Shown here is a 267-nucleotide sequence from Penicillium brevicompactum, a member of the family "Fungal signal recognition particle RNA". Rfam links the family to the GO terms signal recognition particle, endoplasmic reticulum targeting, signal recognition particle, plasma membrane targeting and SRP-dependent cotranslational protein targeting to membrane, signal sequence recognition. Lineage of the source: Eukaryota > leotiomyceta > Eurotiomycetidae > Aspergillaceae > Penicillium.

[Rfam]
RNA sequence: AAUCUGUCAUGGAUAACCGAGUGGGAGGCUCACCGCCAUGCACAUUUCCCUGCUUCGACGCAAGUCAGCGGGUACAGGUGCCUGGUACGAAUCCCGGGGUUGGCAUUUCACUCGUGCGAGUAAUCCACGACGCUGGAGGCCACUAAGCAAUGGAAAUGACCCUUGAGGGAAGCAAUUCUGCAGAGACAUUUCCACCCCAGGAUGGCGUCGCCAGAUUACACCGUCUCGUUACAGGGACUGGUGCAAUUUGGUGUGACAACCACUUUU
Numbered sequence: 001a002a003u004c005u006g007u008c009a010u011g012g013a014u015a016a017c018c019g020a021g022u023g024g025g026a027g028g029c030u031c032a033c034c035g036c037c038a039u040g041c042a043c044a045u046u047u048c049c050c051u052g053c054u055u056c057g058a059c060g061c062a063a064g065u066c067a068g069c070g071g072g073u074a075c076a077g078g079u080g081c082c083u084g085g086u087a088c089g090a091a092u093c094c095c096g097g098g099g100u101u102g103g104c105a106u107u108u109c110a111c112u113c114g115u116g117c118g119a120g121u122a123a124u125c126c127a128c129g130a131c132g133c134u135g136g137a138g139g140c141c142a143c144u145a146a147g148c149a150a151u152g153g154a155a156a157u158g159a160c161c162c163u164u165g166a167g168g169g170a171a172g173c174a175a176u177u178c179u180g181c182a183g184a185g186a187c188a189u190u191u192c193c194a195c196c197c198c199a200g201g202a203u204g205g206c207g208u209c210g211c212c213a214g215a216u217u218a219c220a221c222c223g224u225c226u227c228g229u230u231a232c233a234g235g236g237a238c239u240g241g242u243g244c245a246a247u248u249u250g251g252u253g254u255g256a257c258a259a260c261c262a263c264u265u266u267u
Stems, first nucleotide, its partner, number of pairs: 002014003019265006029255001031253005038247002041243003046237004052065004069228003074224002077222004082214005087208003091203004096198004101142001103140002107137004112130005118125002143147001151194007162185003169178003